[Rfam]
The record is a 247-nucleotide RNA from Streptomyces laurentii, which matches "Streptomyces sRNA 4677" in Rfam.
By type it is a small RNA.
About the family: Located in the intergenic region between anti-sigma factor SCO4677 gene and a putative regulatory protein gene SCO4676. scr4677 expression requires the SCO4677 activity and scr4677 sRNA itself seem to affect the levels of the SCO4676-associated transcripts.

RNA sequence: GACGUGGAUGCCCACGACGUAAAUGACUUCAAGUACGUGGGGAAGAACCCCGCCCUUCCCCUCCAGCCUCCCCGGCAACCCCAGAGACCCCGUCACCCUGACGGGUGAUUUAGGCCAAGUGGACUGGAUUUGGAGCGGGUUGUCGGGCAUAUGCUCACCGCGACAACCCCAGACAUGCGUCGGCCCCCGGCCGGGACUGCGAAUCCCGAUCGAGGGCCUGACCACCGAGGAAGGUCACAACUUCCCG
Number, nucleotide and partner (000 for none) at each position: 001g223002a000003c000004g000005u000006g000007g080008a000009u077010g076011c075012c074013c000014a000015c000016g000017a000018c000019g000020u000021a000022a000023a000024u000025g000026a000027c000028u000029u000030c000031a000032a000033g000034u000035a000036c000037g000038u000039g000040g000041g000042g000043a000044a000045g000046a000047a000048c000049c000050c000051c000052g000053c000054c000055c000056u000057u000058c000059c000060c000061c000062u000063c000064c000065a000066g000067c000068c000069u000070c000071c000072c000073c000074g012075g011076c010077a009078a000079c000080c007081c000082c000083a000084g000085a000086g000087a000088c000089c000090c000091c000092g000093u108094c107095a106096c105097c104098c103099u000100g000101a000102c000103g098104g097105g096106u095107g094108a093109u000110u000111u000112a000113g000114g000115c000116c000117a000118a000119g000120u000121g000122g000123a000124c000125u157126g156127g155128a000129u000130u000131u000132g000133g000134a000135g000136c000137g000138g000139g000140u000141u000142g000143u000144c000145g000146g000147g000148c000149a000150u000151a000152u000153g000154c000155u127156c126157a125158c000159c000160g000161c000162g000163a000164c000165a000166a000167c000168c000169c000170c000171a000172g000173a000174c000175a000176u000177g000178c000179g000180u000181c000182g218183g217184c216185c215186c214187c000188c212189g211190g000191c000192c000193g207194g206195g205196a204197c000198u000199g000200c000201g000202a000203a000204u196205c195206c194207c193208g000209a000210u000211c189212g188213a000214g186215g185216g184217c183218c182219u000220g000221a000222c000223c001224a000225c000226c000227g000228a000229g245230g244231a243232a242233g241234g000235u000236c000237a000238c000239a000240a000241c233242u232243u231244c230245c229246c000247g000